[Rfam]
RNA sequence: UGGAGGAUUGAGAAGGUUUAGCAGCUUCAUACUGUGCUGUUAUAACUGGUUAAUAACCUCCUAAAUCAACAUCGGGCCGAUGCAACAACUGGCUAUAUGAGACGGUCAUUACAGCUAAUGUUGCGUUUGUGCACAACUA
Numbered sequence: 001u002g003g004a005g006g007a008u009u010g011a012g013a014a015g016g017u018u019u020a021g022c023a024g025c026u027u028c029a030u031a032c033u034g035u036g037c038u039g040u041u042a043u044a045a046c047u048g049g050u051u052a053a054u055a056a057c058c059u060c061c062u063a064a065a066u067c068a069a070c071a072u073c074g075g076g077c078c079g080a081u082g083c084a085a086c087a088a089c090u091g092g093c094u095a096u097a098u099g100a101g102a103c104g105g106u107c108a109u110u111a112c113a114g115c116u117a118a119u120g121u122u123g124c125g126u127u128u129g130u131g132c133a134c135a136a137c138u139a
Base pairs, nucleotide, nucleotide: 002061003060004059005058006057015047016046017045018044019042020041021040022039023038024037025036081131082130083129087126090123091122092121093120